[Rfam]
RNA: Plastid-ndhJ 3UTR RNA
Organism: Camellia sinensis
RNA sequence: UCAUGAACUUUGUACUGCGCACAUCAUUUAGACGAGUUCUAGAAAGUAAUGUAGGAG
Numbered sequence: 001u002c003a004u005g006a007a008c009u010u011u012g013u014a015c016u017g018c019g020c021a022c023a024u025c026a027u028u029u030a031g032a033c034g035a036g037u038u039c040u041a042g043a044a045a046g047u048a049a050u051g052u053a054g055g056a057g
Stems, first nucleotide, its partner, number of pairs: 019037002022034001024032002